A member of the RNA family "Eukaryotic large subunit ribosomal RNA" from Entomophaga aulicae, 494 nucleotides of a longer RNA. Rfam's curators put it in the seed alignment. Pairs were carried over by alignment from the consensus structure, which is taken from published work. Rfam links the family to the GO terms structural constituent of ribosome and ribosome. Its Rfam clan is "LSU clan".
[Rfam]
RNA sequence: CCUGCCGAAGUUUCCCUCAGGAUAGCAGAAACACGUAGUAAUAGUUUUAUGUGGUAAAGCGAAUGAUUAGAGGAAUUAGGGGCGUAAAGCUUUUAACCUAUUCUCAAACUUUGAAUUUGUAAGAAGAUGUAGAUUUCUUAACUGAAUUUAUAUCUUUGAAUAAAUGUGUUUCUAGUGGGCCAUUUUUGGUAAGCAGAACUGGCGAUGCGGGAUGAACCGGACGUCGGGUUAAGGUGCCUAAAUUUACGCUUAUUUGACACCACAAAAGGUGUUAGUUCAUAUUGACAGCAGGACGGUGGCCAUGGAAGUUGGAAUCCGCUAAGGAGUGUGUAACAACUCACCUGCCGAAUGAACUAGCCCUGAAAAUGGAUGGCGCUUAAGCGUGAUACCUAAACCUGGCCAUCAUUAAACUAUUUUUAAUGAUGAGUAGGCAGGCGUGGCGAUUGAGUUGAAGCCUUGAGGUAACUCUUGGUGGAUCAAUUACUAGUGCAGAU
Number, nucleotide and partner (000 for none) at each position: 001c435002c434003u433004g432005c431006c430007g000008a000009a000010g000011u024012u000013u022014c021015c020016c000017u000018c000019a000020g015021g014022a013023u000024a011025g000026c000027a173028g172029a171030a170031a169032c168033a167034c000035g000036u000037a000038g000039u000040a000041a000042u000043a000044g000045u124046u123047u122048u121049a120050u119051g118052u000053g000054g000055u000056a000057a112058a110059g109060c000061g000062a000063a000064u106065g105066a104067u000068u000069a101070g000071a099072g098073g097074a000075a000076u096077u095078a094079g093080g092081g091082g000083c089084g000085u000086a000087a000088a000089g083090c000091u081092u080093u079094u078095a077096a076097c073098c072099u071100a000101u069102u000103c000104u066105c065106a064107a000108a000109c059110u058111u000112u057113g000114a000115a000116u000117u000118u051119g050120u049121a048122a047123g046124a045125a000126g154127a153128u152129g000130u150131a149132g148133a147134u146135u145136u000137c000138u000139u000140a000141a000142c000143u000144g000145a135146a134147u133148u132149u131150a130151u000152a128153u127154c126155u000156u000157u000158g000159a000160a000161u000162a000163a000164a000165u000166g000167u033168g032169u031170u030171u029172c028173u027174a000175g000176u000177g000178g000179g203180c202181c201182a200183u000184u198185u197186u196187u195188g194189g000190u000191a000192a000193g000194c188195a187196g186197a185198a184199c000200u182201g181202g180203c179204g000205a000206u000207g000208c219209g218210g217211g000212a000213u000214g000215a000216a000217c210218c209219g208220g000221a000222c000223g400224u399225c398226g397227g396228g000229u394230u000231a000232a000233g390234g389235u388236g000237c000238c000239u000240a000241a000242a387243u000244u386245u000246a000247c383248g382249c381250u000251u000252a000253u000254u000255u000256g000257a000258c000259a000260c000261c000262a000263c000264a000265a000266a000267a361268g360269g359270u000271g358272u357273u356274a355275g354276u353277u352278c351279a350280u349281a000282u000283u000284g000285a000286c000287a000288g345289c344290a343291g342292g341293a000294c318295g317296g316297u000298g000299g000300c312301c311302a000303u000304g000305g000306a000307a000308g000309u000310u000311g301312g300313a000314a000315u000316c296317c295318g294319c323320u000321a000322a000323g319324g339325a000326g000327u000328g337329u336330g000331u000332a000333a000334c000335a000336a329337c328338u000339c324340a000341c292342c291343u290344g289345c288346c000347g000348a000349a280350u279351g278352a277353a276354c275355u274356a273357g272358c271359c269360c268361u267362g000363a000364a000365a000366a000367u000368g000369g000370a000371u000372g000373g000374c000375g000376c000377u000378u000379a000380a000381g249382c248383g247384u000385g000386a244387u242388a235389c234390c233391u000392a000393a000394a229395c000396c227397u226398g225399g224400c223401c425402a424403u423404c422405a421406u420407u419408a418409a417410a000411c000412u000413a000414u000415u000416u000417u409418u408419a407420a406421u405422g404423a403424u402425g401426a000427g000428u000429a000430g006431g005432c004433a003434g002435g001436c489437g000438u486439g485440g484441c000442g482443a481444u480445u479446g478447a477448g000449u000450u000451g000452a000453a000454g473455c472456c000457u000458u000459g468460a467461g466462g000463u000464a000465a000466c461467u460468c459469u000470u000471g000472g455473u454474g000475g000476a000477u447478c446479a445480a444481u443482u442483a000484c440485u439486a438487g000488u000489g436490c000491a000492g000493a000494u000